[Rfam]
RNA sequence: GGGCGGGGGAAAGUCCGGUCGCGGGAGGAGCCAAGUCCGCGGGCAGCUAGGCUACCUGCGCAGGGCGAAAUUCGUGCGUAGAACCUUAUCGACAAAAGUAUCUGUCAGAGACAGGGGAGUGACUUGCCAGGCCGUAACAUCA
Numbered sequence: 001g002g003g004c005g006g007g008g009g010a011a012a013g014u015c016c017g018g019u020c021g022c023g024g025g026a027g028g029a030g031c032c033a034a035g036u037c038c039g040c041g042g043g044c045a046g047c048u049a050g051g052c053u054a055c056c057u058g059c060g061c062a063g064g065g066c067g068a069a070a071u072u073c074g075u076g077c078g079u080a081g082a083a084c085c086u087u088a089u090c091g092a093c094a095a096a097a098g099u100a101u102c103u104g105u106c107a108g109a110g111a112c113a114g115g116g117g118a119g120u121g122a123c124u125u126g127c128c129a130g131g132c133c134g135u136a137a138c139a140u141c142a
Stems, first nucleotide, its partner, number of pairs: 020041005051090001053088002056081006065072001101115005119135003
The record is a 142-nucleotide sequence from Paenibacillus sabuli, which matches "Group II catalytic intron D1-D4-4" in Rfam. Group II introns are found in rRNA, tRNA and mRNA of organelles in fungi, plants and protists, and also in mRNA in bacteria. Rfam links the family to the GO term Group II intron splicing. For this family Rfam cites "Group II introns: structure and catalytic versatility of large natural ribozymes" (Lehmann and Schmidt, Crit Rev Biochem Mol Biol, 2003).